Record summary:
A member of the RNA family "Nematode snoRNA ceN88" from Mytilus coruscus, 135 nucleotides long. Rfam classes the family as an H/ACA-box small nucleolar RNA. A search with the family's covariance model found it, with a score of 48 bits. On this family, see Jia et al., BMC Mol Biol 2007: "Systematic identification of non-coding RNA 2,2,7-trimethylguanosine cap structures in Caenorhabditis elegans".
Nucleotides: 135
Base pairs, nucleotide, nucleotide: 003062004061005060006059007058008057010055017049018048019047020046023043024042025041026040071129072128073127074126075125076124077123085113086112090108091107092106093105094104
Number, partner (000 for none) and nucleotide at each position: 001000u002000a003062a004061c005060c006059a007058c008057c009000u010055u011000u012000u013000c014000u015000u016000g017049g018048c019047a020046u021000g022000u023043u024042a025041a026040g027000u028000a029000u030000u031000g032000a033000a034000u035000a036000g037000u038000a039000a040026c041025u042024u043023a044000c045000u046020a047019u048018g049017u050000a051000u052000g053000u054000u055010a056000u057008g058007g059006u060005g061004g062003u063000a064000u065000a066000u067000a068000a069000a070000a071129u072128g073127u074126g075125g076124a077123c078000u079000g080000u081000c082000u083000u084000c085113g086112g087000u088000g089000c090108u091107g092106g093105a094104g095000u096000u097000c098000c099000g100000a101000g102000u103000a104094c105093u106092c107091c108090a109000u110000a111000u112086c113085c114000c115000u116000c117000c118000u119000c120000u121000a122000u123077g124076u125075u126074c127073a128072c129071a130000a131000c132000a133000g134000u135000a